[Rfam]
RNA sequence: UAACGCACGAUGUCGUGCGGGUGAGAACCUGCGUUCAAGUUCGAGCCGAGCGAAGCGAGACGACAACGCGCAGCGUUGCCCGUAGGGCGACGAGUCAAUCCUGCACGACCCACCA
Numbered sequence: 001u002a003a004c005g006c007a008c009g010a011u012g013u014c015g016u017g018c019g020g021g022u023g024a025g026a027a028c029c030u031g032c033g034u035u036c037a038a039g040u041u042c043g044a045g046c047c048g049a050g051c052g053a054a055g056c057g058a059g060a061c062g063a064c065a066a067c068g069c070g071c072a073g074c075g076u077u078g079c080c081c082g083u084a085g086g087g088c089g090a091c092g093a094g095u096c097a098a099u100c101c102u103g104c105a106c107g108a109c110c111c112a113c114c115a
Base pairs, nucleotide, nucleotide: 015106016105017104018103019102020101021100022098032089033088035087036086040084042082043081047057048056064078065077066076067075068074069073
Shown here is a 115-nucleotide RNA sequence from Chania multitudinisentens, a member of the family "RtT RNA". The match comes from Rfam's covariance-model search (73 bits). For this family Rfam cites "A novel RNA product of the tyrT operon of Escherichia coli" (Bosl and Kersten, Nucleic Acids Res, 1991). Rfam 15.1 lists 651 matches to the family in 204 species. This family represents a bacterial cis-regulatory element known as RtT RNA. The exact function of RtT is unknown although it is thought that it may be involved in changing the cellular response in relation to amino acid starvation. The base pairs follow the family's consensus structure, which is taken from published work.